[Rfam]
RNA sequence: UGAGGGGAAUGUUGUCUGGCUCGAGGUCACCAACUAGAUCCAUAAACUCCAUAUUAUGCUUUUUUGAAUAUAAAGAUUAGUUUUUCUUUUCUUUUCACUAGGAAAAUUUAAAGAUUAGUUGAUUAUAUUAAAAAGGGUUUAUGGAUCAUGAGUUAGUGUUGUCGGACCAGGCUUCAUUCCCCCCAAU
Numbered sequence: 001u002g003a004g005g006g007g008a009a010u011g012u013u014g015u016c017u018g019g020c021u022c023g024a025g026g027u028c029a030c031c032a033a034c035u036a037g038a039u040c041c042a043u044a045a046a047c048u049c050c051a052u053a054u055u056a057u058g059c060u061u062u063u064u065u066g067a068a069u070a071u072a073a074a075g076a077u078u079a080g081u082u083u084u085u086c087u088u089u090u091c092u093u094u095u096c097a098c099u100a101g102g103a104a105a106a107u108u109u110a111a112a113g114a115u116u117a118g119u120u121g122a123u124u125a126u127a128u129u130a131a132a133a134a135g136g137g138u139u140u141a142u143g144g145a146u147c148a149u150g151a152g153u154u155a156g157u158g159u160u161g162u163c164g165g166a167c168c169a170g171g172c173u174u175c176a177u178u179c180c181c182c183c184c185a186a187u
Stems, first nucleotide, its partner, number of pairs: 001185002004182008014172006022164003
RNA: mir-166 microRNA precursor family